[Rfam]
RNA sequence: UUCAUCAAGUGAUGAAAUGAGGAAAAAUCUUAGGACACCUUCCUACACAGUACAGCCAUGCUGUGGAUGAGAACAAAAUUUCCUUUCUGAUGAUGAU
Numbered sequence: 001u002u003c004a005u006c007a008a009g010u011g012a013u014g015a016a017a018u019g020a021g022g023a024a025a026a027a028u029c030u031u032a033g034g035a036c037a038c039c040u041u042c043c044u045a046c047a048c049a050g051u052a053c054a055g056c057c058a059u060g061c062u063g064u065g066g067a068u069g070a071g072a073a074c075a076a077a078a079u080u081u082c083c084u085u086u087c088u089g090a091u092g093a094u095g096a097u
Stems, first nucleotide, its partner, number of pairs: 002096006043050002
Shown here is a 97-nucleotide RNA sequence from Momordica charantia, a member of the family "Small nucleolar RNA snoR31/Z110/Z27". The family's RNA type in Rfam is C/D-box small nucleolar RNA. It scores 51 bits against the family's covariance model. The family has 8 seed sequences and 571 matches in Rfam 15.1. This family contains several related snoRNAs including R31, Z27 and Z110.